[Rfam]
RNA sequence: CAACACUCAUUGUAAACACGCCUCACCAAGACUAAACAGCGUGUCUAAACAACAGUCUUUCAUACCUUGCCUUAGGGUGGCAAGGAAUAGUAACUCCA
Numbered sequence: 001c002a003a004c005a006c007u008c009a010u011u012g013u014a015a016a017c018a019c020g021c022c023u024c025a026c027c028a029a030g031a032c033u034a035a036a037c038a039g040c041g042u043g044u045c046u047a048a049a050c051a052a053c054a055g056u057c058u059u060u061c062a063u064a065c066c067u068u069g070c071c072u073u074a075g076g077g078u079g080g081c082a083a084g085g086a087a088u089a090g091u092a093a094c095u096c097c098a
Base pairs, nucleotide, nucleotide: 016044017043018042019041020040022039023038028059029058030057031056032055065085066084067083068082069081070080071079